[Rfam]
RNA sequence: UCCAUCGCGAGGUGGAAUCUGAAGGAAGCUGGCGGCAAAAUUCCGACCCGAGGAACACGAACAUCAUCAGGCAUGAAAUGCGGGACGAGUUUGCAACACAAAACGAAGUCCAAUUAACUACACAGACGCACUCAUGUAAAUGCUGCGGGUACAUGGAAGGAAAGUGAAUCGU
Numbered sequence: 001u002c003c004a005u006c007g008c009g010a011g012g013u014g015g016a017a018u019c020u021g022a023a024g025g026a027a028g029c030u031g032g033c034g035g036c037a038a039a040a041u042u043c044c045g046a047c048c049c050g051a052g053g054a055a056c057a058c059g060a061a062c063a064u065c066a067u068c069a070g071g072c073a074u075g076a077a078a079u080g081c082g083g084g085a086c087g088a089g090u091u092u093g094c095a096a097c098a099c100a101a102a103a104c105g106a107a108g109u110c111c112a113a114u115u116a117a118c119u120a121c122a123c124a125g126a127c128g129c130a131c132u133c134a135u136g137u138a139a140a141u142g143c144u145g146c147g148g149g150u151a152c153a154u155g156g157a158a159g160g161a162a163a164g165u166g167a168a169u170c171g172u
Stems, first nucleotide, its partner, number of pairs: 001016006028172002031169001035165002041158005046150005062145002065142002071137003075133001077132001079130004083111004089104004
Rfam assigns this 172-nucleotide sequence from Paenibacillus sp. 598K to the family "Group II catalytic intron D1-D4-3". Gene Ontology term of the family: Group II intron splicing. The base pairs follow the family's consensus structure. Group II introns are found in rRNA, tRNA and mRNA of organelles in fungi, plants and protists, and also in mRNA in bacteria. Lineage of the source: Bacteria > Bacillati > Bacillota > Caryophanales > Paenibacillus.